The record is a 101-nucleotide sequence, which matches "Purine riboswitch aptamer" in Rfam.
RNA sequence: UAGUAAUUUAAUAAAUACUUUCGUAUAACUCCAAUGAUAUGGUUUGGAGGUCUCUACCAGGAACCUAUAAAUUCCUGAUUACGAAGAAGAUACAUGAAUUU
Numbered sequence: 001u002a003g004u005a006a007u008u009u010a011a012u013a014a015a016u017a018c019u020u021u022c023g024u025a026u027a028a029c030u031c032c033a034a035u036g037a038u039a040u041g042g043u044u045u046g047g048a049g050g051u052c053u054c055u056a057c058c059a060g061g062a063a064c065c066u067a068u069a070a071a072u073u074c075c076u077g078a079u080u081a082c083g084a085a086g087a088a089g090a091u092a093c094a095u096g097a098a099u100u101u
Base pairs, nucleotide, nucleotide: 019086020085021084022083023082024081025080029049030048031047032046033045034044058077059076060075061074062073063072